[Rfam]
RNA sequence: ACCUUCAAGGAGCGUUGCAAGGAUUGCUGAGACCCAGCACUUCCCCAGGCUUGAAGGGAGUGGGCUCCUAAACGGAGUUUGCUAAUUGCAACCGCGCUCGCUAACC
Numbered sequence: 001a002c003c004u005u006c007a008a009g010g011a012g013c014g015u016u017g018c019a020a021g022g023a024u025u026g027c028u029g030a031g032a033c034c035c036a037g038c039a040c041u042u043c044c045c046c047a048g049g050c051u052u053g054a055a056g057g058g059a060g061u062g063g064g065c066u067c068c069u070a071a072a073c074g075g076a077g078u079u080u081g082c083u084a085a086u087u088g089c090a091a092c093c094g095c096g097c098u099c100g101c102u103a104a105c106c
Base pairs, nucleotide, nucleotide: 002057003056004055005054006053007052008051021044022043023042
Shown here is a 106-nucleotide RNA sequence from Polynucleobacter asymbioticus, a member of the family "SAH (S-adenosyl-L-homocysteine) riboswitch aptamer". It scores 46 bits against the family's covariance model.